RNA sequence: GCUGUUUGAGGUGGAAAAUUUCGUACGAUCCACACGCCGAUGGUAUGACAGGGGGAAACCCGAGAGAUGCAGGAGCCACGUACGCCUGCCAAAUAGC
Numbered sequence: 001g002c003u004g005u006u007u008g009a010g011g012u013g014g015a016a017a018a019u020u021u022c023g024u025a026c027g028a029u030c031c032a033c034a035c036g037c038c039g040a041u042g043g044u045a046u047g048a049c050a051g052g053g054g055g056a057a058a059c060c061c062g063a064g065a066g067a068u069g070c071a072g073g074a075g076c077c078a079c080g081u082a083c084g085c086c087u088g089c090c091a092a093a094u095a096g097c
Stems, first nucleotide, its partner, number of pairs: 001097008011033005023083005035064001036044003069089005
RNA: skipping-rope RNA